[Rfam]
RNA sequence: ACUGAUCAAGGAUGAUAGUAUAUUGAUGGUGACUGCUGGAUGAAACUUGCGGAUAUGGGACUGAGAUCAGUU
Numbered sequence: 001a002c003u004g005a006u007c008a009a010g011g012a013u014g015a016u017a018g019u020a021u022a023u024u025g026a027u028g029g030u031g032a033c034u035g036c037u038g039g040a041u042g043a044a045a046c047u048u049g050c051g052g053a054u055a056u057g058g059g060a061c062u063g064a065g066a067u068c069a070g071u072u
Stems, first nucleotide, its partner, number of pairs: 001071005
RNA: Small nucleolar RNA SNORD99